[Rfam]
RNA sequence: AGCGAAACAAGGCAAACCUGGCGAAAGCCGGGGACGCAAAGCCACGGGCCUACAGCUUAAAGCCAAGGCAGCCGGGCUGCCGCGC
Numbered sequence: 001a002g003c004g005a006a007a008c009a010a011g012g013c014a015a016a017c018c019u020g021g022c023g024a025a026a027g028c029c030g031g032g033g034a035c036g037c038a039a040a041g042c043c044a045c046g047g048g049c050c051u052a053c054a055g056c057u058u059a060a061a062g063c064c065a066a067g068g069c070a071g072c073c074g075g076g077c078u079g080c081c082g083c084g085c
Stems, first nucleotide, its partner, number of pairs: 003082002012037002017032006035071001040078004045074003048069003
The record is an 85-nucleotide sequence from Gelria sp. Kuro-4, which matches "c-di-GMP-I-GGC riboswitch aptamer" in Rfam.
Its family is annotated with cyclic-di-GMP binding in the Gene Ontology.
The match comes from Rfam's covariance-model search (69 bits).
Pairs were carried over by alignment from the consensus structure, which is taken from published work.